This 61-nucleotide RNA sequence from Prolemur simus belongs to the Rfam family "U7 small nuclear RNA".
It scores 41 bits against the family's covariance model.
NCBI's taxonomy places the organism under Eukaryota, Amniota, Eutheria, Strepsirrhini, Prolemur.
The family's consensus secondary structure was predicted with PFOLD.
For this family Rfam cites "Identification of the human U7 snRNP as one of several factors involved in the 3' end maturation of histone premessenger RNA's" (Mowry and Steitz, Science, 1987).
[Rfam]
RNA sequence: CAGUGUUACACUCUUUGAGAAUUUCUCUAGCAGCUUUUCUGAUCCUCACCAGAAGACCUCU
Numbered sequence: 001c002a003g004u005g006u007u008a009c010a011c012u013c014u015u016u017g018a019g020a021a022u023u024u025c026u027c028u029a030g031c032a033g034c035u036u037u038u039c040u041g042a043u044c045c046u047c048a049c050c051a052g053a054a055g056a057c058c059u060c061u
Stems, first nucleotide, its partner, number of pairs: 033058001035056007043048001